[Rfam]
RNA sequence: CGACAGCGCCGGGCCCCUCUGGCGGUGCGGGCGGACACGCCCCGCCGCGAUGUCGGAGCUGUUCC
Numbered sequence: 001c002g003a004c005a006g007c008g009c010c011g012g013g014c015c016c017c018u019c020u021g022g023c024g025g026u027g028c029g030g031g032c033g034g035a036c037a038c039g040c041c042c043c044g045c046c047g048c049g050a051u052g053u054c055g056g057a058g059c060u061g062u063u064c065c
Stems, first nucleotide, its partner, number of pairs: 006059002009056004022048005029042005
RNA: terC RNA